RNA sequence: UGCAGCUGAGUCAAAUUCGGUCCUCGCCUGCCCCGUGCUGGGGACCGGCCAAACAGCUGCCACAGCAACACCUGUAGCCCACGGGCCCCUCUGUCCCCGUCCCUGGACCCUGGGGGUCAAUGAGCGCUACAGACACCA
Numbered sequence: 001u002g003c004a005g006c007u008g009a010g011u012c013a014a015a016u017u018c019g020g021u022c023c024u025c026g027c028c029u030g031c032c033c034c035g036u037g038c039u040g041g042g043g044a045c046c047g048g049c050c051a052a053a054c055a056g057c058u059g060c061c062a063c064a065g066c067a068a069c070a071c072c073u074g075u076a077g078c079c080c081a082c083g084g085g086c087c088c089c090u091c092u093g094u095c096c097c098c099g100u101c102c103c104u105g106g107a108c109c110c111u112g113g114g115g116g117u118c119a120a121u122g123a124g125c126g127c128u129a130c131a132g133a134c135a136c137c138a
Stems, first nucleotide, its partner, number of pairs: 002060004018047009028037001074130005079124001086115004
A member of the RNA family "Small nucleolar RNA SNORA5" from Eudromia elegans, 138 nucleotides long. A search with the family's covariance model found it, with a score of 77 bits. Its Rfam clan is "SNORA5 clan". ACA5 is a member of the H/ACA class of snoRNA that guide the sites of modification of uridines to pseudouridines.